Rfam assigns this 70-nucleotide RNA from Herbaspirillum rubrisubalbicans to the family "Xanthine riboswitch aptamer (NMT1 RNA)". Rfam links the family to the GO term purine nucleobase binding.
[Rfam]
RNA sequence: AGCUUGAGUAGAAGCGGCUAGCAGUCGGUAACACUUCACACUUACCGUCUUGCGGGGCAUUGCUCGUGAC
Numbered sequence: 001a002g003c004u005u006g007a008g009u010a011g012a013a014g015c016g017g018c019u020a021g022c023a024g025u026c027g028g029u030a031a032c033a034c035u036u037c038a039c040a041c042u043u044a045c046c047g048u049c050u051u052g053c054g055g056g057g058c059a060u061u062g063c064u065c066g067u068g069a070c
Stems, first nucleotide, its partner, number of pairs: 005066006015055001018057002021053003024049001026047006